[Rfam]
RNA sequence: CACGUCAGCACGCUUUGCUAACGUGGACACAAAUCGCGCUCCAGAGGACGCGAUUUGUUGCCAUGUCAACAAAACGCGCUGACAUGG
Numbered sequence: 001c002a003c004g005u006c007a008g009c010a011c012g013c014u015u016u017g018c019u020a021a022c023g024u025g026g027a028c029a030c031a032a033a034u035c036g037c038g039c040u041c042c043a044g045a046g047g048a049c050g051c052g053a054u055u056u057g058u059u060g061c062c063a064u065g066u067c068a069a070c071a072a073a074a075c076g077c078g079c080u081g082a083c084a085u086g087g
Stems, first nucleotide, its partner, number of pairs: 001086002004083006011076002014073004019068001021066001023064004029058010040047002
RNA: MIR7486 microRNA precursor family